RNA sequence: UGAUAGCUAUGAAACACAGGUUGCUAUACCCCAUAAAAAGGGCAUAGGUUUUGUGUGGAGCGAAGGUCAUGUUACAAAAACUGGCGACAA
Dot-bracket structure: .............(((((((...((((................))))..))))))).........(((..((((.......)))))))..

S10-Clostridia ribosomal protein leader: a 90-nucleotide sequence.
Rfam's curators put it in the seed alignment.
Pairs were carried over by alignment from the consensus structure, which is taken from published work.
Rfam classes the family as a cis-regulatory leader.
The literature on the family includes a 2020 paper in BMC Microbiol by Eckert and Weinberg, "Discovery of 20 novel ribosomal leader candidates in bacteria and archaea".